[Rfam]
RNA: Small nucleolar RNA SNORD47
RNA sequence: AGCCACUGAUGAAGUUUGAUUCUGCCAAAUGAAUUCCUGUGAUAUUAACGAUUUCUGUUCCAACAUUGUCUGAGGUU
Numbered sequence: 001a002g003c004c005a006c007u008g009a010u011g012a013a014g015u016u017u018g019a020u021u022c023u024g025c026c027a028a029a030u031g032a033a034u035u036c037c038u039g040u041g042a043u044a045u046u047a048a049c050g051a052u053u054u055c056u057g058u059u060c061c062a063a064c065a066u067u068g069u070c071u072g073a074g075g076u077u
Stems, first nucleotide, its partner, number of pairs: 001077004